[Rfam]
RNA sequence: UUUAAAUGCAACCAUGAUUUUCUGUGUCUAACUUUGAUCAUCUGUCUUAUUUAAAAACAAUGAAAAAAAUAAAAAAAACAUAAGUCACGCAUAAAGUACUAUUCAUGUUUUAUAAUCUCAUAACAAUAAAAAUACUAAUUAUAAAAAAACAAAUCAAAUAAGACGGACGAUUAAAAUUAAGCAUGGAAACUUAUGGUUGCUCUUAAA
Numbered sequence: 001u002u003u004a005a006a007u008g009c010a011a012c013c014a015u016g017a018u019u020u021u022c023u024g025u026g027u028c029u030a031a032c033u034u035u036g037a038u039c040a041u042c043u044g045u046c047u048u049a050u051u052u053a054a055a056a057a058c059a060a061u062g063a064a065a066a067a068a069a070u071a072a073a074a075a076a077a078a079c080a081u082a083a084g085u086c087a088c089g090c091a092u093a094a095a096g097u098a099c100u101a102u103u104c105a106u107g108u109u110u111u112a113u114a115a116u117c118u119c120a121u122a123a124c125a126a127u128a129a130a131a132a133u134a135c136u137a138a139u140u141a142u143a144a145a146a147a148a149a150c151a152a153a154u155c156a157a158a159u160a161a162g163a164c165g166g167a168c169g170a171u172u173a174a175a176a177u178u179a180a181g182c183a184u185g186g187a188a189a190c191u192u193a194u195g196g197u198u199g200c201u202c203u204u205a206a207a
Base pairs, nucleotide, nucleotide: 027181029179030178031177033175034174035173036172037171038170039169041167042166043165044164045163046162047161048160049159050158051157052156
This 207-nucleotide RNA sequence from Oryza nivara belongs to the Rfam family "MIR812 microRNA precursor family". A search with the family's covariance model found it, with a score of 116 bits. Gene Ontology terms of the family: miRNA-mediated post-transcriptional gene silencing and RISC complex. The source organism's lineage runs through Eukaryota, Euphyllophyta, Magnoliopsida, Poaceae and Oryza.